[Rfam]
RNA sequence: CAUCCUAAAUGAAGACACGUGCGUAAACUAUGGUCUAGUGGCACGUGUUCGAUGCCAGGCAGG
Numbered sequence: 001c002a003u004c005c006u007a008a009a010u011g012a013a014g015a016c017a018c019g020u021g022c023g024u025a026a027a028c029u030a031u032g033g034u035c036u037a038g039u040g041g042c043a044c045g046u047g048u049u050c051g052a053u054g055c056c057a058g059g060c061a062g063g
Stems, first nucleotide, its partner, number of pairs: 001063001003061001005059001014049009028038003
Shown here is a 63-nucleotide sequence from Muraenolepis orangiensis, a member of the family "Selenocysteine insertion sequence 1".
From the family's description: The incorporation of selenocysteine into a protein sequence is directed by an in-frame UGA codon (usually a stop codon) within the coding region of the mRNA. Selenoprotein mRNAs contain a conserved secondary structure in the 3' UTR that is required for the distinction of UGA stop from UGA selenocysteine.
The family's consensus secondary structure is taken from published work.
Rfam classes the family as a cis-regulatory element.